RNA: CyVA-1 RNA
RNA sequence: GUGUUGACUGGGUGUUGUACCGCUGUGUCCCAUUAUCAAACCUUGAAGGAGAGCGACGUCAAAGGUUUGAGCAACAC
Numbered sequence: 001g002u003g004u005u006g007a008c009u010g011g012g013u014g015u016u017g018u019a020c021c022g023c024u025g026u027g028u029c030c031c032a033u034u035a036u037c038a039a040a041c042c043u044u045g046a047a048g049g050a051g052a053g054c055g056a057c058g059u060c061a062a063a064g065g066u067u068u069g070a071g072c073a074a075c076a077c
Stems, first nucleotide, its partner, number of pairs: 001077006009032004037069008